Small nucleolar RNA SNORD100: an 83-nucleotide RNA from Myripristis murdjan.
The family has 26 seed sequences and 838 matches in Rfam 15.1.
The family's RNA type in Rfam is C/D-box small nucleolar RNA.
The family is grouped with related families in Rfam's "SNORD100 clan".
For this family Rfam cites "RNomics: an experimental approach that identifies 201 candidates for novel, small, non-messenger RNAs in mouse" (Huttenhofer et al., EMBO J, 2001).
Lineage of the source: Eukaryota > Chordata > Eurypterygia > Euacanthomorphacea > Myripristis.
RNA sequence: UGUAUCAGUGAUGAUAAUUUGGCUCCCUCUACUGAAUACUAUGAGGAGACUGCCAUUGUUACCCAAUUUGUGUCUGAGAUACA
Numbered sequence: 001u002g003u004a005u006c007a008g009u010g011a012u013g014a015u016a017a018u019u020u021g022g023c024u025c026c027c028u029c030u031a032c033u034g035a036a037u038a039c040u041a042u043g044a045g046g047a048g049a050c051u052g053c054c055a056u057u058g059u060u061a062c063c064c065a066a067u068u069u070g071u072g073u074c075u076g077a078g079a080u081a082c083a
Stems, first nucleotide, its partner, number of pairs: 001083006